[Rfam]
RNA sequence: GACGAAUCUAUUGCCUGCCAAGCCCGACGUUUACCGGCGCCGGGGGAGGGCAGCGAAAAGAGGAAUCU
Number, nucleotide and partner (000 for none) at each position: 001g000002a000003c000004g000005a000006a000007u000008c000009u000010a000011u056012u055013g054014c000015c053016u052017g051018c050019c049020a000021a000022g000023c044024c043025c042026g041027a000028c039029g038030u037031u036032u000033a000034c000035c000036g031037g030038c029039g028040c000041c026042g025043g024044g023045g000046g000047a000048g000049g019050g018051c017052a016053g015054c013055g012056a011057a000058a000059a000060g000061a000062g000063g000064a000065a000066u000067c000068u000
RNA: ilvH RNA
Organism: Delftia acidovorans